[Rfam]
RNA: Vertebrate telomerase RNA
RNA sequence: ACGCCGGGCGGUUUGGAGGUUCCCUGAGUUUUCUAACCCUAAAUUAGCCGUCAUGGGCAUCGCUUUUGUUCGCUGUUUUAUUCGUUGACUUUCAGCGAACUCAAACUUGCAAAAAACGUCAUCGCUGCAGGGGGGCCUCCUCCGCUUGCCGGCCGCGCCUGACUCUUCUUCCCUCUCCGCCUCGCCUUUCUCGCCCGGCCGCCGCCCUGCCGACGAGGCCGCGGUCAGCCUGGCCCGCGCCGCUGCUGCCGCGAAGGGUUCGGCCCUGUUAGCCUCGGGGCCGGCGGCUGCGCGAGGGGAGAAGCUUCUCUGGGUGGGGCCGCGUCGGCGCGAGAGCAAAAUCGGGCGACGCCUCCUGCCCCGAGUGGGUCCCGCGCGCCUCUUGAGUCGUGGGGCGCGCGGCGGACGUCGGCCGGACACGC
Numbered sequence: 001a002c003g004c005c006g007g008g009c010g011g012u013u014u015g016g017a018g019g020u021u022c023c024c025u026g027a028g029u030u031u032u033c034u035a036a037c038c039c040u041a042a043a044u045u046a047g048c049c050g051u052c053a054u055g056g057g058c059a060u061c062g063c064u065u066u067u068g069u070u071c072g073c074u075g076u077u078u079u080a081u082u083c084g085u086u087g088a089c090u091u092u093c094a095g096c097g098a099a100c101u102c103a104a105a106c107u108u109g110c111a112a113a114a115a116a117c118g119u120c121a122u123c124g125c126u127g128c129a130g131g132g133g134g135g136c137c138u139c140c141u142c143c144g145c146u147u148g149c150c151g152g153c154c155g156c157g158c159c160u161g162a163c164u165c166u167u168c169u170u171c172c173c174u175c176u177c178c179g180c181c182u183c184g185c186c187u188u189u190c191u192c193g194c195c196c197g198g199c200c201g202c203c204g205c206c207c208u209g210c211c212g213a214c215g216a217g218g219c220c221g222c223g224g225u226c227a228g229c230c231u232g233g234c235c236c237g238c239g240c241c242g243c244u245g246c247u248g249c250c251g252c253g254a255a256g257g258g259u260u261c262g263g264c265c266c267u268g269u270u271a272g273c274c275u276c277g278g279g280g281c282c283g284g285c286g287g288c289u290g291c292g293c294g295a296g297g298g299g300a301g302a303a304g305c306u307u308c309u310c311u312g313g314g315u316g317g318g319g320c321c322g323c324g325u326c327g328g329c330g331c332g333a334g335a336g337c338a339a340a341a342u343c344g345g346g347c348g349a350c351g352c353c354u355c356c357u358g359c360c361c362c363g364a365g366u367g368g369g370u371c372c373c374g375c376g377c378g379c380c381u382c383u384u385g386a387g388u389c390g391u392g393g394g395g396c397g398c399g400c401g402g403c404g405g406a407c408g409u410c411g412g413c414c415g416g417a418c419a420c421g422c
Stems, first nucleotide, its partner, number of pairs: 004152003007146005015140005021133005064105003068100008084123001086121004090116003155331005161325001184305002187302006196290007205280005220253005226248004232241003255267004344414002347411005353405002372402005379395004
Dot-bracket structure: ...((((((((...(((((.(((((......................................(((.((((((((........[.[[[[[[[))))))))..)))........]]].]]]].].....)))))..))))).)))))...)))..(((((.(......................((.((((((...(((((((..(((((..........(((((.((((..(((....)))...))))))))).((((.....))))........)))))...)))))))......)))))).))...................).)))))............((.(((((.((.................(((((..((((.........))))..))))).)).))))).))........